[Rfam]
This 92-nucleotide RNA from Prunus avium belongs to the Rfam family "MIR6288 microRNA precursor family".
The family's consensus secondary structure was predicted with RNAalifold.
The source organism's lineage runs through Eukaryota, Viridiplantae, Spermatophyta, Magnoliopsida and Prunus.

RNA sequence: CCAAAAUCAGUCACUUGUCAUUUUCUAAUUGGUUUUUAGUGUGUUAAAAUUUUAUAAGAACCAAUUAUAAAAUAACAAGUGGCUGCUUUUGA
Number, nucleotide and partner (000 for none) at each position: 001c000002c091003a090004a089005a088006a087007u000008c085009a084010g083011u082012c081013a080014c079015u078016u077017g076018u075019c000020a073021u072022u071023u070024u069025c000026u067027a066028a065029u064030u063031g062032g061033u060034u059035u058036u057037u056038a055039g000040u000041g000042u000043g000044u000045u000046a000047a000048a000049a000050u000051u000052u000053u000054a000055u038056a037057a036058g035059a034060a033061c032062c031063a030064a029065u028066u027067a026068u000069a024070a023071a022072a021073u020074a000075a018076c017077a016078a015079g014080u013081g012082g011083c010084u009085g008086c000087u006088u005089u004090u003091g002092a000